This 148-nucleotide sequence from Juglans regia belongs to the Rfam family "small nucleolar RNA snoR135". On this family, see Chen and Wu, Nucleic Acids Res 2009: "Mining small RNA sequencing data: a new approach to identify small nucleolar RNAs in Arabidopsis". It is annotated as an H/ACA-box small nucleolar RNA. The base pairs follow the family's consensus structure, which was predicted with RNAalifold.

RNA sequence: AGAGCAGGGAUUUGUGUGUAUCGGCGUAGUGCUGUGACCAGUGCACUCUGUUUCCGAAAGAGUUCCCUGCAAGAUCCAUCUGGGGAAGGUGGGCAGUUGUAUUUCAUUUGAACCAUUGAAAUUUUCAACAAUCAUCUUCCCCACAUCG
Dot-bracket structure: ...(((((((.....((((((...................)))))).................)))))))...........(((((((((((...((((..........................))))..)))))))))))......